RNA sequence: AACAUCAGAUGAUGAAUUCUCAGUUAUUAUCUUAUGACACCUUCUGACACAGUGUAAAAACUGUGUAUGAGAUUAAUCUCGAUUUCUGAUGAUGUU
Number, nucleotide and partner (000 for none) at each position: 001a096002a095003c094004a093005u092006c091007a090008g000009a000010u000011g000012a000013u000014g000015a000016a000017u000018u000019c000020u000021c000022a000023g000024u000025u000026a000027u000028u000029a000030u000031c000032u000033u000034a000035u000036g000037a000038c000039a000040c000041c000042u000043u000044c000045u051046g050047a000048c000049a000050c046051a045052g000053u000054g000055u000056a000057a000058a000059a000060a000061c000062u000063g000064u000065g000066u000067a000068u000069g000070a000071g000072a000073u000074u000075a000076a000077u000078c000079u000080c000081g000082a000083u000084u000085u000086c000087u000088g000089a000090u007091g006092a005093u004094g003095u002096u001
RNA: Small nucleolar RNA snoR31/Z110/Z27